[Rfam]
The record is an 85-nucleotide sequence from Dendrobium nobile, which matches "MIR168 microRNA precursor family" in Rfam.
The organism belongs to Dendrobium, within Eukaryota.
A reference for the family is Reinhart et al. (2002), "MicroRNAs in plants", Genes Dev.
RNA sequence: GUCGCCGCCGCCGCUGAUUCGCUUGGUGCAGGUCGGGAUCGGGGCGGGAUCCUGCCUUGCAUCAACUGAAUCGGAGGAGGUGAGC
Numbered sequence: 001g002u003c004g005c006c007g008c009c010g011c012c013g014c015u016g017a018u019u020c021g022c023u024u025g026g027u028g029c030a031g032g033u034c035g036g037g038a039u040c041g042g043g044g045c046g047g048g049a050u051c052c053u054g055c056c057u058u059g060c061a062u063c064a065a066c067u068g069a070a071u072c073g074g075a076g077g078a079g080g081u082g083a084g085c
Base pairs, nucleotide, nucleotide: 014074017071018070019069020068023065024064025063026062027061028060029059030058031057032056034054035053036052037051038050040048
The match comes from Rfam's covariance-model search (71 bits).